RNA sequence: GUAGGCUACGGGGACAUGUGCCCAACCACUCCGGGGGGGAAGAUCGUGGGCACUCUAUGCGCCAUCGCAGGAGUCCUCACCAUUGCCCUCCCCGUGCCUGUCAUUGUUUCAAAC
Numbered sequence: 001g002u003a004g005g006c007u008a009c010g011g012g013g014a015c016a017u018g019u020g021c022c023c024a025a026c027c028a029c030u031c032c033g034g035g036g037g038g039g040a041a042g043a044u045c046g047u048g049g050g051c052a053c054u055c056u057a058u059g060c061g062c063c064a065u066c067g068c069a070g071g072a073g074u075c076c077u078c079a080c081c082a083u084u085g086c087c088c089u090c091c092c093c094g095u096g097c098c099u100g101u102c103a104u105u106g107u108u109u110c111a112a113a114c
Stems, first nucleotide, its partner, number of pairs: 001114002005110001008107004013102004018097004037077004049063003
Potassium channel RNA editing signal: a 114-nucleotide sequence from Carlito syrichta. Rfam describes the family as follows. This family represents a group of sequences related to the human potassium channel Kv1.1 hairpin element which directs the efficient modification of an adenosine to inosine by an adenosine deaminase acting on RNA (ADAR). Rfam classes the family as a cis-regulatory element. The match comes from Rfam's covariance-model search (107 bits).